[Rfam]
RNA sequence: GGAGGUGUUCAGGUACCUGGUGGGCCUCCCCGCCUUCAAAGCGGGUGGGACGGGGAACCCUCGUCCGGCGGGUUCGAUUCCCGUCCGCCUCC
Dot-bracket structure: (((((((....((..((....))..)).(((((.......)))))..(((((.........)))))..((((.......))))..)))))))
The family of this 92-nucleotide RNA from Virgisporangium aurantiacum is "Selenocysteine transfer RNA". Rfam links the family to the GO term triplet codon-amino acid adaptor activity. The family's consensus secondary structure is taken from published work.